[Rfam]
RNA: 6A RNA
RNA sequence: UGAUAUGUUCGUAGUGUGGCGAGCAGGAUAAAUUAAAGAAGCACAUUACAA
Numbered sequence: 001u002g003a004u005a006u007g008u009u010c011g012u013a014g015u016g017u018g019g020c021g022a023g024c025a026g027g028a029u030a031a032a033u034u035a036a037a038g039a040a041g042c043a044c045a046u047u048a049c050a051a
Stems, first nucleotide, its partner, number of pairs: 006025006014044004